Shown here is a 32-nucleotide RNA sequence from Sphenodon punctatus, a member of the family "Iron response element II". For this family Rfam cites "A cytosolic protein binds to structural elements within the iron regulatory region of the transferrin receptor mRNA" (Koeller et al., Proc Natl Acad Sci U S A, 1989). Its family is annotated with response to iron ion in the Gene Ontology. It is annotated as a cis-regulatory element. The family has 30 seed sequences and 5,197 matches in Rfam 15.1. About the family: IRE, TFRC, SLC40A1, SDHB, SLC11A2, CDC42BPA, ACO2, ALAS2_H.SAPIENS, CDC14A, EPAS1, ALAS2, qoxD, Hao1, NDUFS1, transferrin, Aconitate. Taxonomically the source falls in Sphenodon (Eukaryota, Metazoa, Lepidosauria, Sphenodontidae). A search with the family's covariance model found it, with a score of 32 bits.
[Rfam]
RNA sequence: AUAUAAUCAUAGGCAGUGACUGUAUAUUAUAC
Number, nucleotide and partner (000 for none) at each position: 001a000002u031003a030004u029005a028006a027007u026008c000009a025010u024011a023012g021013g020014c018015a000016g000017u000018g014019a000020c013021u012022g000023u011024a010025u009026a007027u006028u005029a004030u003031a002032c000